[Rfam]
RNA sequence: AUUUGAAUAUGGACUGCUUCUUGUAUAAGCUCAUUAAUAUGGUUUGAGCGUCUCGACCAGGCGACCUUAAAUUGCCCUAGGCUACAUGAGCACAGACUGAACUG
Numbered sequence: 001a002u003u004u005g006a007a008u009a010u011g012g013a014c015u016g017c018u019u020c021u022u023g024u025a026u027a028a029g030c031u032c033a034u035u036a037a038u039a040u041g042g043u044u045u046g047a048g049c050g051u052c053u054c055g056a057c058c059a060g061g062c063g064a065c066c067u068u069a070a071a072u073u074g075c076c077c078u079a080g081g082c083u084a085c086a087u088g089a090g091c092a093c094a095g096a097c098u099g100a101a102c103u104g
Base pairs, nucleotide, nucleotide: 018090019089020088022086023085024084025083029049030048031047032046033045058080060076061075062074063073064072

This 104-nucleotide RNA from Lacrimispora xylanisolvens belongs to the Rfam family "Purine riboswitch aptamer". The match comes from Rfam's covariance-model search (54 bits). Lineage of the source: Bacteria > Clostridia > Lachnospirales > Lachnospiraceae > Lacrimispora. Riboswitches are metabolite binding domains within certain messenger RNAs that serve as precision sensors for their corresponding targets. Allosteric rearrangement of mRNA structure is mediated by ligand binding, and this results in modulation of gene expression. A class of riboswitches that selectively recognises guanine and becomes saturated at concentrations as low as 5 nM. In Bacillus subtilis, this mRNA motif is located on at least five separate transcriptional units that together encode 17 genes that are mostly involved in purine transport and purine nucleotide biosynthesis. It has also been shown that some members of this family are specific for adenine instead.